[Rfam]
RNA sequence: GCAACGGGGAUGUGCGAUCUCCCCGUGAGGCGUCAUGCCCAAGAAUCGCGUCCUGAUCGUCACCAAGGGCGCAGCAUG
Numbered sequence: 001g002c003a004a005c006g007g008g009g010a011u012g013u014g015c016g017a018u019c020u021c022c023c024c025g026u027g028a029g030g031c032g033u034c035a036u037g038c039c040c041a042a043g044a045a046u047c048g049c050g051u052c053c054u055g056a057u058c059g060u061c062a063c064c065a066a067g068g069g070c071g072c073a074g075c076a077u078g
Stems, first nucleotide, its partner, number of pairs: 005025006048072006
Overview:
This 78-nucleotide RNA from Bradyrhizobium diazoefficiens belongs to the Rfam family "chrB-a RNA". The family's consensus secondary structure is taken from published work. It is one of the family's seed sequences. Rfam classes the family as a cis-regulatory element.